RNA: mir-239 microRNA precursor family
RNA sequence: CGAACUUUGUACUUUGGCUAAGGUGCUGCUCUAUAGCGGUCAACACCUUGGCUGAGUGCAAGGCUUAG
Number, nucleotide and partner (000 for none) at each position: 001c000002g000003a065004a000005c063006u062007u061008u060009g059010u058011a057012c056013u000014u000015u000016g052017g000018c051019u050020a049021a048022g047023g046024u045025g000026c000027u042028g041029c039030u038031c000032u000033a000034u000035a000036g000037c000038g030039g029040u000041c028042a027043a000044c000045a024046c023047c022048u021049u020050g019051g018052c016053u000054g000055a000056g012057u011058g010059c009060a008061a007062g006063g005064c000065u003066u000067a000068g000